[Rfam]
RNA: mir-515 microRNA precursor family
RNA sequence: CUCAUGCAGUCAUUCUCCAAAAGGGAGCACUUUCUGUUGUCUGAAAGAAAACAAAGUGCCUCCUUUUAGAGUGUUACUGUUUGAGA
Numbered sequence: 001c002u003c004a005u006g007c008a009g010u011c012a013u014u015c016u017c018c019a020a021a022a023g024g025g026a027g028c029a030c031u032u033u034c035u036g037u038u039g040u041c042u043g044a045a046a047g048a049a050a051a052c053a054a055a056g057u058g059c060c061u062c063c064u065u066u067u068a069g070a071g072u073g074u075u076a077c078u079g080u081u082u083g084a085g086a
Stems, first nucleotide, its partner, number of pairs: 001085004006080005012074002015071003019067007027059007037051002
Dot-bracket structure: ((((.(((((.((.(((.(((((((.(((((((...((...........)).))))))).))))))).))).)).))))).)))).